[Rfam]
RNA sequence: CGGACGGGCCGUGACUGGCGCGUUCGGAUGGGGCAACCAUCGGGGAGCGGCCCCGUCACCCGACGACCUGCCGUGCGCCUGGGCCUCUGCA
Numbered sequence: 001c002g003g004a005c006g007g008g009c010c011g012u013g014a015c016u017g018g019c020g021c022g023u024u025c026g027g028a029u030g031g032g033g034c035a036a037c038c039a040u041c042g043g044g045g046a047g048c049g050g051c052c053c054c055g056u057c058a059c060c061c062g063a064c065g066a067c068c069u070g071c072c073g074u075g076c077g078c079c080u081g082g083g084c085c086u087c088u089g090c091a
Stems, first nucleotide, its partner, number of pairs: 003057003006053007015044002017079005028040004070084003
This 91-nucleotide RNA from Paractinoplanes tereljensis belongs to the Rfam family "ZMP/ZTP riboswitch aptamer (pfl RNA motif)". Its family is annotated with regulation of purine nucleotide biosynthetic process and one-carbon metabolic process in the Gene Ontology. The match comes from Rfam's covariance-model search (51 bits). Pairs were carried over by alignment from the consensus structure, which is taken from published work. Taxonomically the source falls in Paractinoplanes (Bacteria, Bacillati, Actinomycetota, Micromonosporales).